[Rfam]
RNA sequence: GCGCGUGUGGCGGAAUGGCAGACGCGCCGGCUUCAGGUGCCGGUGCCCGCAAGGGCGUGGAGGUUCAACUCCUCUCACGCGCA
Dot-bracket structure: (((((((..(((..........))).(((((.......)))))...............(((((.......)))))))))))).
Shown here is an 83-nucleotide RNA from Tessaracoccus flavus, a member of the family "tRNA".
By type it is a transfer RNA.